[Rfam]
RNA sequence: CCGUGCAGCCGGGGAGAUAGCGGUGCCCUGUACCUGCAAUCCGCUACAGCAGGGGUGAUGCCAAACCGAGGGAUUUCUUUCUGUGGAGCUGCCCUCUAUAAGUGGCGUUGACGUUUGGGUCUUACGCAACAGGAAUCUGUGAACCGUGUCAGGGCAGGAAUGCAGCAGCACUAAGCAGAACCUUCUGUGUGCCGUAAGGGUGCCUGGGCCGAGUUAACUGUAGAGGUAACGUCCAUGGGAGAGUCUCGAAGGGCGGCGCACGG
Numbered sequence: 001c002c003g004u005g006c007a008g009c010c011g012g013g014g015a016g017a018u019a020g021c022g023g024u025g026c027c028c029u030g031u032a033c034c035u036g037c038a039a040u041c042c043g044c045u046a047c048a049g050c051a052g053g054g055g056u057g058a059u060g061c062c063a064a065a066c067c068g069a070g071g072g073a074u075u076u077c078u079u080u081c082u083g084u085g086g087a088g089c090u091g092c093c094c095u096c097u098a099u100a101a102g103u104g105g106c107g108u109u110g111a112c113g114u115u116u117g118g119g120u121c122u123u124a125c126g127c128a129a130c131a132g133g134a135a136u137c138u139g140u141g142a143a144c145c146g147u148g149u150c151a152g153g154g155c156a157g158g159a160a161u162g163c164a165g166c167a168g169c170a171c172u173a174a175g176c177a178g179a180a181c182c183u184u185c186u187g188u189g190u191g192c193c194g195u196a197a198g199g200g201u202g203c204c205u206g207g208g209c210c211g212a213g214u215u216a217a218c219u220g221u222a223g224a225g226g227u228a229a230c231g232u233c234c235a236u237g238g239g240a241g242a243g244u245c246u247c248g249a250a251g252g253g254c255g256g257c258g259c260a261c262g263g
Stems, first nucleotide, its partner, number of pairs: 001263006008056003011029004016024001018022001033053005061256002066251001070247005078242005086234001090228002094225006102218002104215003113209008121198006127189002130187005136179005146171004154163003
The family of this 263-nucleotide sequence from Blautia sp. An46 is "Bacterial large signal recognition particle RNA".
Rfam's curators write: The signal recognition particle (SRP) is a universally conserved ribonucleoprotein involved in the co-translational targeting of proteins to membranes.
The family's RNA type in Rfam is non-coding RNA gene.
Gene Ontology terms of the family: SRP-dependent cotranslational protein targeting to membrane, signal sequence recognition and signal recognition particle, plasma membrane targeting.